[Rfam]
RNA sequence: AAACGUUCUCAGGGCGGGGCGAAACUCCCCACCGGCGGUAAUGAUGCCUGCGCAUCUAGCCCGCGAGCGCCUGCAAGACGCCAACGUACACGCGUAGGCAUUCUGCAGGGUCAGCAGACCUGGUGUGAUCCCAGGGCCGACGGUCACAGUCCGGAUGAAAGAGGACGGGA
Numbered sequence: 001a002a003a004c005g006u007u008c009u010c011a012g013g014g015c016g017g018g019g020c021g022a023a024a025c026u027c028c029c030c031a032c033c034g035g036c037g038g039u040a041a042u043g044a045u046g047c048c049u050g051c052g053c054a055u056c057u058a059g060c061c062c063g064c065g066a067g068c069g070c071c072u073g074c075a076a077g078a079c080g081c082c083a084a085c086g087u088a089c090a091c092g093c094g095u096a097g098g099c100a101u102u103c104u105g106c107a108g109g110g111u112c113a114g115c116a117g118a119c120c121u122g123g124u125g126u127g128a129u130c131c132c133a134g135g136g137c138c139g140a141c142g143g144u145c146a147c148a149g150u151c152c153g154g155a156u157g158a159a160a161g162a163g164g165a166c167g168g169g170a
Base pairs, nucleotide, nucleotide: 004167005166006165007164008163009162010161017029018028019027031150032149033139034138035064036063037062038061059137060136067115068114119135120134121133122132123131141153142152143151